[Rfam]
RNA sequence: GCAAUCCUACCAGGUAGAACUUAACCAGUAGCCUGUACCUAGUUCCUUGGAGCCGAAAUGGUAACAUUAGGUUUAAGUGUAGGGCGGGGAGCAAACGAGCCGAAACGAAAGUGAAGCUAUUGAGCCACGAAAUUAUUAUUUAAAUGAAGAGGUCGAUACUGUUCUAGUGGUAGCAGACAAUAUUUUAUGAAUCGUUAUGGUGAGAUUUGUAAAACUCUUCCGAGGUCUGAGGGCU
Numbered sequence: 001g002c003a004a005u006c007c008u009a010c011c012a013g014g015u016a017g018a019a020c021u022u023a024a025c026c027a028g029u030a031g032c033c034u035g036u037a038c039c040u041a042g043u044u045c046c047u048u049g050g051a052g053c054c055g056a057a058a059u060g061g062u063a064a065c066a067u068u069a070g071g072u073u074u075a076a077g078u079g080u081a082g083g084g085c086g087g088g089g090a091g092c093a094a095a096c097g098a099g100c101c102g103a104a105a106c107g108a109a110a111g112u113g114a115a116g117c118u119a120u121u122g123a124g125c126c127a128c129g130a131a132a133u134u135a136u137u138a139u140u141u142a143a144a145u146g147a148a149g150a151g152g153u154c155g156a157u158a159c160u161g162u163u164c165u166a167g168u169g170g171u172a173g174c175a176g177a178c179a180a181u182a183u184u185u186u187a188u189g190a191a192u193c194g195u196u197a198u199g200g201u202g203a204g205a206u207u208u209g210u211a212a213a214a215c216u217c218u219u220c221c222g223a224g225g226u227c228u229g230a231g232g233g234c235u
Base pairs, nucleotide, nucleotide: 011035012034013033014032019029020028021027022203024201025200038089039088040087044084045083046082047081048079049078050074051073052072053071054070056068058067059066060065121229122227124226125225126224128222129221146220147219148218149217150216151215152178153177154176157172158171159170160169183214184213185212186211187210188209189208190207191206192205193204
The record is a 235-nucleotide sequence from Clostridium pasteurianum, which matches "Group II catalytic intron D1-D4-6" in Rfam. Group II introns are found in rRNA, tRNA and mRNA of organelles in fungi, plants and protists, and also in mRNA in bacteria. Pairs were carried over by alignment from the consensus structure. The source organism's lineage runs through Bacteria, Clostridia, Eubacteriales, Clostridium and Clostridium pasteurianum.